[Rfam]
RNA sequence: GCGGGGGAACGUUCGGCCGCGCCGCCCGCUCUUUCGGGAGUGGGGGUGAGGAAAGUCCGGGCACCGCAGGGCAGGAUGCCAGCUAACGGCUGGUCGGCGAGUCAAGUGCCCGCGUCGCGCGCCUGCGCGUGGGUGGCGGCGAAGCCGAAGGACAGUGCCACAGAAACCAGACCGCCAGCAUCCAUUCAAGGCCGGGCGUGGGCCGGAAGCUGGUCAGGGUGAAACGGUGCGGUAAGAGCGCACCAGGCCGCAGGGAGACCUCGCGGCGUCUGGUAAACCCCAUCCGGUGCAAGACCCGAUAGCGCGCGAGGAACGGCCCGUUCCAGUGACCGCCAGGAUGGUCGCAACGAGGCGCGGCGGCGACGCCCGCCCCAGAGAGAUGGCCGAACAGUCACCCUCAGAAGUGAUGGACAGAACCCGGCUUACAGUUCCCCCGCACCA
Numbered sequence: 001g002c003g004g005g006g007g008a009a010c011g012u013u014c015g016g017c018c019g020c021g022c023c024g025c026c027c028g029c030u031c032u033u034u035c036g037g038g039a040g041u042g043g044g045g046g047u048g049a050g051g052a053a054a055g056u057c058c059g060g061g062c063a064c065c066g067c068a069g070g071g072c073a074g075g076a077u078g079c080c081a082g083c084u085a086a087c088g089g090c091u092g093g094u095c096g097g098c099g100a101g102u103c104a105a106g107u108g109c110c111c112g113c114g115u116c117g118c119g120c121g122c123c124u125g126c127g128c129g130u131g132g133g134u135g136g137c138g139g140c141g142a143a144g145c146c147g148a149a150g151g152a153c154a155g156u157g158c159c160a161c162a163g164a165a166a167c168c169a170g171a172c173c174g175c176c177a178g179c180a181u182c183c184a185u186u187c188a189a190g191g192c193c194g195g196g197c198g199u200g201g202g203c204c205g206g207a208a209g210c211u212g213g214u215c216a217g218g219g220u221g222a223a224a225c226g227g228u229g230c231g232g233u234a235a236g237a238g239c240g241c242a243c244c245a246g247g248c249c250g251c252a253g254g255g256a257g258a259c260c261u262c263g264c265g266g267c268g269u270c271u272g273g274u275a276a277a278c279c280c281c282a283u284c285c286g287g288u289g290c291a292a293g294a295c296c297c298g299a300u301a302g303c304g305c306g307c308g309a310g311g312a313a314c315g316g317c318c319c320g321u322u323c324c325a326g327u328g329a330c331c332g333c334c335a336g337g338a339u340g341g342u343c344g345c346a347a348c349g350a351g352g353c354g355c356g357g358c359g360g361c362g363a364c365g366c367c368c369g370c371c372c373c374a375g376a377g378a379g380a381u382g383g384c385c386g387a388a389c390a391g392u393c394a395c396c397c398u399c400a401g402a403a404g405u406g407a408u409g410g411a412c413a414g415a416a417c418c419c420g421g422c423u424u425a426c427a428g429u430u431c432c433c434c435c436g437c438a439c440c441a
Stems, first nucleotide, its partner, number of pairs: 001437010011426001012388007020048004025043002053424003057421005062289004069319004074285005079093005094149001095147004150280002155278002157274003172218002174214006181207002226244006246269001247267005252261003293343004304333003310324005351371004356367004
The record is a 441-nucleotide RNA sequence from Deinococcus radiopugnans, which matches "Bacterial RNase P class A" in Rfam.
A search with the family's covariance model found it, with a score of 223 bits.
Gene Ontology terms of the family: ribonuclease P activity, dimeric ribonuclease P complex and tRNA processing.